[Rfam]
RNA sequence: CUGUAGUUAUCCUUGGCACUGGAAGAAUUCACAGAUAGUUUCUUUGAUCGUGGAUUCCCUGGUGCCAUAGAUAAAAUUAA
Numbered sequence: 001c002u003g004u005a006g007u008u009a010u011c012c013u014u015g016g017c018a019c020u021g022g023a024a025g026a027a028u029u030c031a032c033a034g035a036u037a038g039u040u041u042c043u044u045u046g047a048u049c050g051u052g053g054a055u056u057c058c059c060u061g062g063u064g065c066c067a068u069a070g071a072u073a074a075a076a077u078u079a080a
Stems, first nucleotide, its partner, number of pairs: 003078001007074004014067005020061003025056002029053004034048001
The family of this 80-nucleotide RNA from Folsomia candida is "mir-263 microRNA precursor family".
The family has 52 seed sequences and 368 matches in Rfam 15.1.
The family is grouped with related families in Rfam's "mir-182 clan".
The family's consensus secondary structure was predicted with RNAalifold.
Its family is annotated with miRNA-mediated post-transcriptional gene silencing and RISC complex in the Gene Ontology.
For this family Rfam cites "Direct sequencing and expression analysis of a large number of miRNAs in Aedes aegypti and a multi-species survey of novel mosquito miRNAs" (Li et al., BMC Genomics, 2009).